[Rfam]
RNA sequence: GGCAUGACACAAGCGCCUGGACUGUGCGGUCCGCGCGCCCCUCAGGGUGCCGCGGAUUGGGAACAGUUGACGCGGAGGAGGUCAGCGAACCAUUCGGCGGGUGCCUCCCGGUGUGCGCCGCACCGCGAGCGAAGCUCGAAAGCCGCCGGGCGACCGGCGGGACAAGGGCGAGCAGGCGAAUGA
Numbered sequence: 001g002g003c004a005u006g007a008c009a010c011a012a013g014c015g016c017c018u019g020g021a022c023u024g025u026g027c028g029g030u031c032c033g034c035g036c037g038c039c040c041c042u043c044a045g046g047g048u049g050c051c052g053c054g055g056a057u058u059g060g061g062a063a064c065a066g067u068u069g070a071c072g073c074g075g076a077g078g079a080g081g082u083c084a085g086c087g088a089a090c091c092a093u094u095c096g097g098c099g100g101g102u103g104c105c106u107c108c109c110g111g112u113g114u115g116c117g118c119c120g121c122a123c124c125g126c127g128a129g130c131g132a133a134g135c136u137c138g139a140a141a142g143c144c145g146c147c148g149g150g151c152g153a154c155c156g157g158c159g160g161g162a163c164a165a166g167g168g169c170g171a172g173c174a175g176g177c178g179a180a181u182g183a
Base pairs, nucleotide, nucleotide: 020068021067022066023065024064025063027061077108078107079106080105081104086096087095088094109125110124111123112122113121114120134173135172136171137170138169143160144159145158146157147156148155149154
RNA: glmS glucosamine-6-phosphate activated ribozyme aptamer
Organism: Paenalicyclobacillus macrosporangiidus